[Rfam]
RNA sequence: GGCAGAGUAGGAAAAUGUGUGUCCAGUGCCGCCGGGACGGGGAGUUGUCCGGCGGACGAAAUGACGGCCCACCGUCUGCAGUGCAUUUUCCGCAUCCCGCUGCC
Numbered sequence: 001g002g003c004a005g006a007g008u009a010g011g012a013a014a015a016u017g018u019g020u021g022u023c024c025a026g027u028g029c030c031g032c033c034g035g036g037a038c039g040g041g042g043a044g045u046u047g048u049c050c051g052g053c054g055g056a057c058g059a060a061a062u063g064a065c066g067g068c069c070c071a072c073c074g075u076c077u078g079c080a081g082u083g084c085a086u087u088u089u090c091c092g093c094a095u096c097c098c099g100c101u102g103c104c
Base pairs, nucleotide, nucleotide: 001104002103003102004101005100010091011090012089013088014087015086016085017084018083019082020080021079022078026057027056029055030054031053032052033051034050035049036048040097041096042095044093063076064075065074
Rfam assigns this 104-nucleotide sequence from Vescimonas fastidiosa to the family "THF (Tetrahydrofolate) riboswitch aptamer". NCBI's taxonomy places the organism under Bacteria, Bacillati, Eubacteriales, Oscillospiraceae, Vescimonas. Rfam links the family to the GO term tetrahydrofolate metabolic process. Tetrahydrofolate (THF) riboswitch was first reported for Ames et al. as an RNA motif in 5' untranslated (5'-UTR)regions of folate transport and biosynthesis genes in Firmicutes genomes. Rfam 15.1 lists 747 matches to the family in 747 species. It scores 84 bits against the family's covariance model.